Y RNA: a 114-nucleotide RNA sequence from Cebus imitator.
RNA sequence: GGCUGGUCCGAAGGUAGUGAGUCACUAUCUCAAUUGAUUGUUCACAGUCAGUUACAGAUCGAAGUCCUUGUUCUACUCUCCCCUCUUCUCACUACUGCACUUGACUAGUCUUAA
Numbered sequence: 001g002g003c004u005g006g007u008c009c010g011a012a013g014g015u016a017g018u019g020a021g022u023c024a025c026u027a028u029c030u031c032a033a034u035u036g037a038u039u040g041u042u043c044a045c046a047g048u049c050a051g052u053u054a055c056a057g058a059u060c061g062a063a064g065u066c067c068u069u070g071u072u073c074u075a076c077u078c079u080c081c082c083c084u085c086u087u088c089u090c091a092c093u094a095c096u097g098c099a100c101u102u103g104a105c106u107a108g109u110c111u112u113a114a
Base pairs, nucleotide, nucleotide: 001110002109003108004107005106006105007104008103010102011101014098015097016093017092018091019090020089021088047077050074051073

The organism belongs to Cebus, within Eukaryota.
Rfam classes the family as a non-coding RNA gene.